[Rfam]
RNA: Bacterial small subunit ribosomal RNA, nucleotides 1 to 546
RNA sequence: UUGUUGGAGAGUUUGAUCCUGGCUCAGGACGAACGCUGGCGGCGUGCUUAACACAUGCAAGUCGUGCGGAAAGGCCCUUUCGGGGGUGCUCGAGCGGCGAACGGGUGAGUAACACGUGAGUGACCUGCCCUCUACUUUGGGAUAACCCUCGGAAACGGGGGCUAAUACCGGAUAUGACCUUCCGCUGCAUGGUGGGAGGUGGAAAGGCUUCGGCCGGUAGGGGAUGGGCUCGCGGCCUAUCAGCUUGUUGGUGGGGUGAUGGCCUACCAAGGCGGUGACGGGUAGCCGGCCUGAGAGGGCGACCGGCCACACUGGGACUGAGACACGGCCCAGACUCCUACGGGAGGCAGCAGUGGGGAAUAUUGCGCAAUGGGCGAAAGCCUGACGCAGCGACGCCGCGUGGGGGAUGACGGCCUUCGGGUUGUAAACCUCUUUCGGCUCUGACGAAGCCUUUCGGGGUGACGGUAGGAGCAGAAGAAGCGCCGGCCAACUACGUGCCAGCAGCCGCGGUAAGACGUAGGGCGCAAGCGUUGUCCGGAUUUAUUG
Numbered sequence: 001u002u003g004u005u006g007g008a009g010a011g012u013u014u015g016a017u018c019c020u021g022g023c024u025c026a027g028g029a030c031g032a033a034c035g036c037u038g039g040c041g042g043c044g045u046g047c048u049u050a051a052c053a054c055a056u057g058c059a060a061g062u063c064g065u066g067c068g069g070a071a072a073g074g075c076c077c078u079u080u081c082g083g084g085g086g087u088g089c090u091c092g093a094g095c096g097g098c099g100a101a102c103g104g105g106u107g108a109g110u111a112a113c114a115c116g117u118g119a120g121u122g123a124c125c126u127g128c129c130c131u132c133u134a135c136u137u138u139g140g141g142a143u144a145a146c147c148c149u150c151g152g153a154a155a156c157g158g159g160g161g162c163u164a165a166u167a168c169c170g171g172a173u174a175u176g177a178c179c180u181u182c183c184g185c186u187g188c189a190u191g192g193u194g195g196g197a198g199g200u201g202g203a204a205a206g207g208c209u210u211c212g213g214c215c216g217g218u219a220g221g222g223g224a225u226g227g228g229c230u231c232g233c234g235g236c237c238u239a240u241c242a243g244c245u246u247g248u249u250g251g252u253g254g255g256g257u258g259a260u261g262g263c264c265u266a267c268c269a270a271g272g273c274g275g276u277g278a279c280g281g282g283u284a285g286c287c288g289g290c291c292u293g294a295g296a297g298g299g300c301g302a303c304c305g306g307c308c309a310c311a312c313u314g315g316g317a318c319u320g321a322g323a324c325a326c327g328g329c330c331c332a333g334a335c336u337c338c339u340a341c342g343g344g345a346g347g348c349a350g351c352a353g354u355g356g357g358g359a360a361u362a363u364u365g366c367g368c369a370a371u372g373g374g375c376g377a378a379a380g381c382c383u384g385a386c387g388c389a390g391c392g393a394c395g396c397c398g399c400g401u402g403g404g405g406g407a408u409g410a411c412g413g414c415c416u417u418c419g420g421g422u423u424g425u426a427a428a429c430c431u432c433u434u435u436c437g438g439c440u441c442u443g444a445c446g447a448a449g450c451c452u453u454u455c456g457g458g459g460u461g462a463c464g465g466u467a468g469g470a471g472c473a474g475a476a477g478a479a480g481c482g483c484c485g486g487c488c489a490a491c492u493a494c495g496u497g498c499c500a501g502c503a504g505c506c507g508c509g510g511u512a513a514g515a516c517g518u519a520g521g522g523c524g525c526a527a528g529c530g531u532u533g534u535c536c537g538g539a540u541u542u543a544u545u546g
Base pairs, nucleotide, nucleotide: 009025010024011023012022013021027536028535029534030533032532033531034530035529036528037527039399040398041397042396043395044394045392046391047357052355053354054353056352057351058350061098062097063096066095067094069091070090074087075086076085077084078083105310106309107308115234116233117232118231119230120229121228124227125226129223130222131221132220133219134218135217137171138170139169140168146161147160148159149158150157151156177200178199179198180197181196182195183194184193185192186191206215207214208213236282237281238280243273244272245271248270249269250268251267252266253265254264255263285307286306287305288304289300290299291298292297312333313332314331315330316329335346336345337344338343363389365388366387367386371384372383373382374381375380402432403431404430405429412423413422414421415420436477438472439471440470441469442468446463480525481524482523483522484521491520492519493518494517495516501508502507